This 54-nucleotide sequence belongs to the Rfam family "6A RNA".
[Rfam]
RNA sequence: AUAUAUGCUCGUACAGCAAACGAGCAGGAUAAUAUAAAGAAACGCUGAAUGAUU
Numbered sequence: 001a002u003a004u005a006u007g008c009u010c011g012u013a014c015a016g017c018a019a020a021c022g023a024g025c026a027g028g029a030u031a032a033u034a035u036a037a038a039g040a041a042a043c044g045c046u047g048a049a050u051g052a053u054u
Base pairs, nucleotide, nucleotide: 006026007025008024009023010022011021014047015046016045017044

Rfam's curators put it in the seed alignment. It is annotated as a small RNA.